[Rfam]
RNA sequence: GAUCCAGAAGAUCAGCGUUUUAAAGCCCCCUGACUUGCUGACUGGCAACCGUGUCUCGCACAACGGUGCCCUCAGGGGAAGAUCUGCUCCACCGAGACCUUGGUGGAGAAAGAUGCGAU
Number, nucleotide and partner (000 for none) at each position: 001g084002a083003u082004c081005c000006a000007g000008a000009a043010g000011a000012u041013c040014a039015g038016c037017g000018u000019u000020u000021u000022a000023a000024a035025g034026c000027c000028c000029c000030c000031u000032g000033a000034c025035u024036u000037g016038c015039u014040g013041a012042c000043u009044g070045g069046c068047a000048a000049c066050c065051g064052u000053g061054u060055c000056u000057c000058g000059c000060a054061c053062a000063a000064c051065g050066g049067u000068g046069c045070c044071c000072u000073c000074a000075g000076g000077g000078g000079a000080a000081g004082a003083u002084c001085u000086g000087c108088u107089c106090c105091a104092c103093c102094g101095a100096g000097a000098c000099c000100u095101u094102g093103g092104u091105g090106g089107a088108g087109a000110a000111a000112g000113a000114u000115g000116c000117g000118a000119u000

SAM (S-adenosyl methionine) riboswitch aptamer: a 119-nucleotide RNA from Corynebacterium alimapuense. Its Rfam clan is "SAM clan". The source organism's lineage runs through Bacteria, Bacillati, Actinomycetota, Mycobacteriales and Corynebacterium. For this family Rfam cites "The aptamer core of SAM-IV riboswitches mimics the ligand-binding site of SAM-I riboswitches" (Weinberg et al., RNA, 2008). From the family's description: SAM-IV is a mRNA element that regulates gene expression via direct sensing of S-adenosylmethionine (SAM or AdoMet). SAM-IV riboswitches share conserved nucleotide positions with the previously described SAM-I riboswitches sequence analysis and molecular recognition experiments suggest that SAM-I and SAM-IV riboswitches share similar ligand binding sites, but have different scaffolds. Pairs were carried over by alignment from the consensus structure, which is taken from published work.